[Rfam]
RNA sequence: ACACUCAUGAUUCUCUUCAGAUCGUAUAAAUCUUUCGCCUUUUACUAAAGAUUUCCGUGGAAAGGAUCAAUAUGAGUUUUAACUAAUUUUUUGAUGCCCUGCUCACGCGGGGCU
Numbered sequence: 001a002c003a004c005u006c007a008u009g010a011u012u013c014u015c016u017u018c019a020g021a022u023c024g025u026a027u028a029a030a031u032c033u034u035u036c037g038c039c040u041u042u043u044a045c046u047a048a049a050g051a052u053u054u055c056c057g058u059g060g061a062a063a064g065g066a067u068c069a070a071u072a073u074g075a076g077u078u079u080u081a082a083c084u085a086a087u088u089u090u091u092u093g094a095u096g097c098c099c100u101g102c103u104c105a106c107g108c109g110g111g112g113c114u
Stems, first nucleotide, its partner, number of pairs: 003077004009068006016061004028054008094114001096113006
Shown here is a 114-nucleotide RNA sequence from Neogobius melanostomus, a member of the family "U5 spliceosomal RNA". It is annotated as a spliceosomal small nuclear RNA. From the family's description: U5 RNA is a component of both types of known spliceosome. The precise function of this molecule is unknown, though it is known that the 5' loop is required for splice site selection and p220 binding, and that both the 3' stem-loop and the Sm site are important for Sm protein binding and cap methylation. A search with the family's covariance model found it, with a score of 94 bits. Lineage of the source: Eukaryota > Opisthokonta > Craniata > Gobioidei > Neogobius.